[Rfam]
Shown here is a 104-nucleotide RNA from Volucribacter psittacicida, a member of the family "TPP riboswitch aptamer (THI element)".
RNA sequence: AUACAUUAGUCGGGGUGCUGUUGGUGAUGUCAUCAUCAAGCUGAGAAAAUACCCGUGAACCUGAUUCAGUUAAUACUGCCGUAGGAAACUAAGUAUGCUUAUCC
Number, nucleotide and partner (000 for none) at each position: 001a000002u000003a000004c000005a000006u092007u091008a090009g089010u088011c055012g054013g053014g052015g000016u049017g041018c040019u039020g000021u000022u000023g000024g000025u000026g000027a000028u000029g000030u000031c000032a000033u000034c000035a000036u000037c000038a000039a019040g018041c017042u000043g000044a000045g000046a000047a000048a000049a016050u000051a000052c014053c013054c012055g011056u000057g000058a000059a000060c085061c084062u083063g082064a000065u000066u000067c078068a077069g076070u000071u000072a000073a000074u000075a000076c069077u068078g067079c000080c000081g000082u063083a062084g061085g060086a000087a000088a010089c009090u008091a007092a006093g000094u000095a000096u000097g000098c000099u000100u000101a000102u000103c000104c000
Notes:
The match comes from Rfam's covariance-model search (63 bits). The family's consensus secondary structure is taken from published work.